Shown here is a 181-nucleotide RNA sequence from Aromatoleum tolulyticum, a member of the family "Manganese Mn2+ riboswitch aptamer (yybP-ykoY)". The literature on the family includes a 2001 paper in Curr Biol by Argaman et al., "Novel small RNA-encoding genes in the intergenic regions of Escherichia coli". NCBI's taxonomy places the organism under Bacteria, Pseudomonadati, Pseudomonadota, Betaproteobacteria, Aromatoleum.

RNA sequence: CGCGCCGUCAUUAGGGAGUAGCCGCCUCCGAACCCCUCGGAGGGACCACGUCAACAAACUUGCCCAUCCGGGCAUGGCGUUGUCAGUCCUCGGACCUGGCGAGACUUUUGACCGCAUGCUCUCCGAUUGUUCGGGCCGGGGAGGCGUGCGGUCAUCGGUCAUGCGCCGGCCCGGAGAACCU
Numbered sequence: 001c002g003c004g005c006c007g008u009c010a011u012u013a014g015g016g017a018g019u020a021g022c023c024g025c026c027u028c029c030g031a032a033c034c035c036c037u038c039g040g041a042g043g044g045a046c047c048a049c050g051u052c053a054a055c056a057a058a059c060u061u062g063c064c065c066a067u068c069c070g071g072g073c074a075u076g077g078c079g080u081u082g083u084c085a086g087u088c089c090u091c092g093g094a095c096c097u098g099g100c101g102a103g104a105c106u107u108u109u110g111a112c113c114g115c116a117u118g119c120u121c122u123c124c125g126a127u128u129g130u131u132c133g134g135g136c137c138g139g140g141g142a143g144g145c146g147u148g149c150g151g152u153c154a155u156c157g158g159u160c161a162u163g164c165g166c167c168g169g170c171c172c173g174g175a176g177a178a179c180c181u
Stems, first nucleotide, its partner, number of pairs: 026042003044084003048080006061074005086179002089176003